[Rfam]
RNA sequence: AGUGAACGGAGUGCACGGUGUCGGUCCGUGUCAUGUGCCGUUGCCGGGCUGCGUUUUGCAGGCCGGGCAGCAGCGCUCACUCCACACCCGCAGCCACAGAACAGCCGGGGAUCAUAGUACUGGCCUUCGGCGUAACCCCGUCGGCCGGCCUCCGAACUCUCCCGACAAAC
Numbered sequence: 001a002g003u004g005a006a007c008g009g010a011g012u013g014c015a016c017g018g019u020g021u022c023g024g025u026c027c028g029u030g031u032c033a034u035g036u037g038c039c040g041u042u043g044c045c046g047g048g049c050u051g052c053g054u055u056u057u058g059c060a061g062g063c064c065g066g067g068c069a070g071c072a073g074c075g076c077u078c079a080c081u082c083c084a085c086a087c088c089c090g091c092a093g094c095c096a097c098a099g100a101a102c103a104g105c106c107g108g109g110g111a112u113c114a115u116a117g118u119a120c121u122g123g124c125c126u127u128c129g130g131c132g133u134a135a136c137c138c139c140g141u142c143g144g145c146c147g148g149c150c151u152c153c154g155a156a157c158u159c160u161c162c163c164g165a166c167a168a169a170c
Stems, first nucleotide, its partner, number of pairs: 013091002029084002034079002036075003040071002043068002045065003050060003107163003110159002120148006129142004
Shown here is a 170-nucleotide sequence from Kryptolebias marmoratus, a member of the family "Small nucleolar RNA SNORA23". Rfam 15.1 lists 1,092 matches to the family in 632 species. By type it is an H/ACA-box small nucleolar RNA. On this family, see Huttenhofer et al., EMBO J 2001: "RNomics: an experimental approach that identifies 201 candidates for novel, small, non-messenger RNAs in mouse".